[Rfam]
RNA sequence: ACCUUCCUUGUCUGGGGGAGCUGAGUGUUCAAUGAUCAACUAGUGAGACCACUUCUGCUAGCACCCAAACAUUUUUCUCAUCGCACCCGCGCCAAGUGCAGCGAGUGCAAUUUUUGGAAAG
Dot-bracket structure: ....(((((.....)))))((.(((((.((......(.....)...)).)))).).))........................(((((.((((...)))).)...)))).............
Annotation
The family of this 121-nucleotide RNA sequence from Tribolium castaneum is "U4atac minor spliceosomal RNA". About the family: U4atac is an essential component of the minor U12-type spliceosome complex which is required for removal of the rarer class of eukaryotic introns (AT-AC, U12-type). For this family Rfam cites "Computational screen for spliceosomal RNA genes aids in defining the phylogenetic distribution of major and minor spliceosomal components" (Davila Lopez et al., Nucleic Acids Res, 2008). The family has 61 seed sequences and 1,648 matches in Rfam 15.1. The family's consensus secondary structure is taken from published work. Clan: U4 clan.